[Rfam]
Nucleotides: 517
Base pairs, nucleotide, nucleotide: 001455002454003453004452005451006450011024013022014021015020027172028171029170030169031168032167033166044123045122046121047120048119049118050117051116056111057109058108063105064104065103068100070098071097072096075095076094077093078092079091080090082088125153126152127151129149130148131147132146133145178202179201180200181199183197184196185195186194187193207218208217209216222399223398224397225396226395228393232389233388234387241386243385246382247381248380266360267359268358270357271356272355273354274353275352276351277350278349279348287344288343289342290341291340293317294316295315299311300310318322323338327336328335400445401444402443403442404441405440407439408438409437457512459509460508461507462506463505464504467501468500475496476495482491483490484489
Number, partner (000 for none) and nucleotide at each position: 001455c002454c003453c004452u005451c006450c007000g008000a009000a010000g011024u012000u013022u014021c015020c016000c017000c018000c019000a020015g021014g022013a023000u024011a025000g026000c027172u028171g029170g030169a031168g032167c033166u034000c035000g036000u037000c038000a039000a040000g041000c042000a043000g044123u045122u046121a047120u048119a049118c050117u051116c052000g053000g054000u055000a056111a057109a058108g059000c060000g061000a062000a063105u064104g065103a066000u067000u068100a069000g070098a071097g072096g073000a074000c075095u076094u077093g078092g079091g080090g081000a082088c083000g084000a085000a086000a087000u088082g089000u090080u091079c092078u093077u094076a095075a096072c097071c098070u099000a100068u101000u102000c103065u104064c105063a106000a107000a108058c109057u110000c111056u112000a113000a114000a115000u116051g117050g118049g119048u120047a121046u122045g123044a124000a125153g126152c127151c128000a129149g130148g131147g132146u133145u134000g135000c136000u137000u138000g139000a140000c141000u142000c143000u144000g145133a146132a147131c148130c149129c150000c151127g152126g153125c154000g155000u156000u157000g158000a159000a160000u161000g162000u163000u164000u165000g166033a167032g168031c169030u170029c171028c172027a173000a174000g175000u176000g177000g178202g179201c180200c181199a182000u183197u184196u185195u186194u187193g188000g189000u190000a191000a192000g193187c194186a195185g196184a197183a198000c199181u200180g201179g202178c203000g204000a205000u206000g207218u208217g209216g210000g211000a212000u213000g214000a215000a216209c217208c218207a219000a220000a221000c222399g223398u224397g225396g226395a227000g228393u229000u230000a231000a232389g233388g234387u235000g236000c237000c238000a239000a240000a241386g242000u243385g244000c245000c246382c247381g248380c249000u250000c251000a252000u253000u254000a255000g256000a257000c258000c259000c260000c261000a262000u263000a264000a265000a266360a267359g268358g269000u270357g271356u272355u273354g274353g275352u276351u277350g278349a279348u280000a281000u282000a283000g284000a285000c286000a287344g288343c289342a290341g291340g292000a293317c294316g295315g296000u297000g298000g299311c300310c301000a302000u303000g304000g305000a306000a307000g308000u309000c310300g311299g312000a313000a314000u315295c316294c317293g318322c319000u320000a321000a322318g323338g324000a325000g326000u327336g328335u329000g330000u331000a332000a333000c334000a335328a336327c337000u338323c339000a340291c341290c342289u343288g344287c345000c346000g347000a348279a349278u350277c351276a352275a353274c354273u355272a356271g357270c358268c359267c360266u361000g362000a363000a364000a365000a366000u367000g368000g369000a370000u371000g372000g373000c374000g375000c376000u377000g378000g379000a380248g381247c382246g383000g384000g385243c386241c387234a388233c389232c390000u391000a392000u393228a394000c395226u396225c397224u398223g399222c400445c401444g402443u403442c404441a405440u406000u407439g408438g409437c410000u411000u412000g413000u414000a415000c416000g417000c418000c419000a420000c421000u422000g423000c424000u425000g426000u427000g428000g429000a430000c431000a432000g433000u434000c435000u436000g437409g438408c439407c440405a441404u442403g443402a444401c445400g446000u447000g448000u449000a450006g451005g452004a453003g454002g455001g456000u457512c458000g459509u460508g461507g462506u463505g464504g465000u466000u467501g468500c469000g470000u471000u472000g473000a474000a475496g476495g477000c478000u479000u480000u481000g482491g483490g484489c485000g486000u487000g488000g489484g490483c491482c492000c493000g494000g495476c496475c497000g498000g499000a500468g501467c502000u503000u504464c505463c506462a507461c508460c509459a510000g511000u512457g513000c514000a515000g516000a517000u
Eukaryotic large subunit ribosomal RNA: a 517-nucleotide part of an RNA from Globodera rostochiensis. The match comes from Rfam's covariance-model search (3081 bits).